The family of this 129-nucleotide RNA from Jacana jacana is "Small Cajal body specific RNA 4". Pairs were carried over by alignment from the consensus structure, which was predicted with RNAfold. The family has 24 seed sequences and 634 matches in Rfam 15.1. The organism belongs to Jacana, within Eukaryota. Rfam describes the family as follows. scaRNAs are a specific class of small nuclear RNAs which localise to the Cajal bodies and guide the modification of RNA polymerase II transcribed spliceosomal RNAs U1, U2, U4, U5 and U12. ACA26 belongs to the H/ACA box class of guide RNAs as it has the predicted hairpin-hinge-hairpin-tail structure, conserved H/ACA-box motifs and is found associated with GAR1. It is annotated as a small Cajal body RNA. It scores 88 bits against the family's covariance model.
[Rfam]
RNA sequence: AGUGGAGGACUAAUGGGGCCGAGUCUGAAGAGUGAGACUUGGAUGACAGUAGCCUCCAAAAAGGAAGGGGAUGGGGAGAGCAGCCCUCCUUACAGAAGAGCAAAGGGCUGACUGUGCCAUCCAACACGU
Numbered sequence: 001a002g003u004g005g006a007g008g009a010c011u012a013a014u015g016g017g018g019c020c021g022a023g024u025c026u027g028a029a030g031a032g033u034g035a036g037a038c039u040u041g042g043a044u045g046a047c048a049g050u051a052g053c054c055u056c057c058a059a060a061a062a063g064g065a066a067g068g069g070g071a072u073g074g075g076g077a078g079a080g081c082a083g084c085c086c087u088c089c090u091u092a093c094a095g096a097a098g099a100g101c102a103a104a105g106g107g108c109u110g111a112c113u114g115u116g117c118c119a120u121c122c123a124a125c126a127c128g129u
Stems, first nucleotide, its partner, number of pairs: 003059001004057005017044001019042001021040006068122003079113002081110007091102001093100001